[Rfam]
RNA sequence: UGGCUUGGUUUCCUAGGGGGUGGGCUCAGCCUCUGCCACCUCCCCUCAGCUGAGCCUAGAGCAGAGAGGCCAGGCGCUCCCUACUGUGGGAGAGGCAGGUGAGACAGGAGCCUCGCCUGGGCUGUCCUUGCCUCACAGGC
Numbered sequence: 001u002g003g004c005u006u007g008g009u010u011u012c013c014u015a016g017g018g019g020g021u022g023g024g025c026u027c028a029g030c031c032u033c034u035g036c037c038a039c040c041u042c043c044c045c046u047c048a049g050c051u052g053a054g055c056c057u058a059g060a061g062c063a064g065a066g067a068g069g070c071c072a073g074g075c076g077c078u079c080c081c082u083a084c085u086g087u088g089g090g091a092g093a094g095g096c097a098g099g100u101g102a103g104a105c106a107g108g109a110g111c112c113u114c115g116c117c118u119g120g121g122c123u124g125u126c127c128u129u130g131c132c133u134c135a136c137a138g139g140c
Stems, first nucleotide, its partner, number of pairs: 002056006016043008066134005072128003078121003088113003
Shown here is a 140-nucleotide RNA sequence from Bos taurus, a member of the family "Small Cajal body specific RNA 21". Rfam's curators put it in the seed alignment. Lineage of the source: Eukaryota > Theria > Laurasiatheria > Bovinae > Bos. scaRNAs are a specific class of small nuclear RNAs which localise to the Cajal bodies and guide the modification of RNA polymerase II transcribed spliceosomal RNAs U1, U2, U4, U5 and U12. ACA68 (SCARNA21) is a member of the H/ACA class of snoRNAs that guide the sites of modification of uridines to pseudouridines. This snoRNA was identified by computational screening and its expression in mouse experimentally verified by Northern blot and primer extension analysis. ACA68 is proposed to guide the pseudouridylation of residue U19 in U12 snRNA. Rfam links the family to the GO terms nucleolus, RNA processing and Cajal body.